RNA sequence: AUGAUGAUUCGUGCCACUGCGAAUCCACUCUGCGACAUACGUCGAGACGAGCUCGACCACUAGCGC
Numbered sequence: 001a002u003g004a005u006g007a008u009u010c011g012u013g014c015c016a017c018u019g020c021g022a023a024u025c026c027a028c029u030c031u032g033c034g035a036c037a038u039a040c041g042u043c044g045a046g047a048c049g050a051g052c053u054c055g056a057c058c059a060c061u062a063g064c065g066c
Base pairs, nucleotide, nucleotide: 006025007024008023009022010021011020012019013018032066033065034064036063041057042056043055044054045053046052